[Rfam]
RNA: Small nucleolar RNA SNORD83
Organism: Ornithorhynchus anatinus
RNA sequence: GCCACAUGAUGCAAUAGUCUGAGACGGGAGCGCCACGCGCCAGGACGACCUUCAUCUAUCACCCUUGACUGAUGGCU
Numbered sequence: 001g002c003c004a005c006a007u008g009a010u011g012c013a014a015u016a017g018u019c020u021g022a023g024a025c026g027g028g029a030g031c032g033c034c035a036c037g038c039g040c041c042a043g044g045a046c047g048a049c050c051u052u053c054a055u056c057u058a059u060c061a062c063c064c065u066u067g068a069c070u071g072a073u074g075g076c077u
Base pairs, nucleotide, nucleotide: 001076002075003074004073030040031039032038033037